A member of the RNA family "Small nucleolar RNA SNORD109A" from Mesocricetus auratus, 69 nucleotides long. It scores 49 bits against the family's covariance model.
RNA sequence: GGAUCAAUGAUGACAACAUGUCUCUGAGGAUGCUAAUAGACCUUACUUACCUAUGCCACUCUGAGCUCC
Numbered sequence: 001g002g003a004u005c006a007a008u009g010a011u012g013a014c015a016a017c018a019u020g021u022c023u024c025u026g027a028g029g030a031u032g033c034u035a036a037u038a039g040a041c042c043u044u045a046c047u048u049a050c051c052u053a054u055g056c057c058a059c060u061c062u063g064a065g066c067u068c069c
Stems, first nucleotide, its partner, number of pairs: 001069003005065001